This 81-nucleotide RNA from Pseudonocardiaceae bacterium YIM PH 21723 belongs to the Rfam family "ZMP/ZTP riboswitch aptamer (pfl RNA motif)".
The family's consensus secondary structure is taken from published work.
The match comes from Rfam's covariance-model search (51 bits).
Gene Ontology terms of the family: one-carbon metabolic process and regulation of purine nucleotide biosynthetic process.
RNA sequence: UUAAGCCCGCGCGACUGGCGUCGGGUGGGGGACCACCGGGGAGCGCACUGCGAGAAGGCAUCGUCCGCCUGGGUGCCCCUC
Numbered sequence: 001u002u003a004a005g006c007c008c009g010c011g012c013g014a015c016u017g018g019c020g021u022c023g024g025g026u027g028g029g030g031g032a033c034c035a036c037c038g039g040g041g042a043g044c045g046c047a048c049u050g051c052g053a054g055a056a057g058g059c060a061u062c063g064u065c066c067g068c069c070u071g072g073g074u075g076c077c078c079c080u081c
Stems, first nucleotide, its partner, number of pairs: 004049002009046004015040002017069004025036004058076005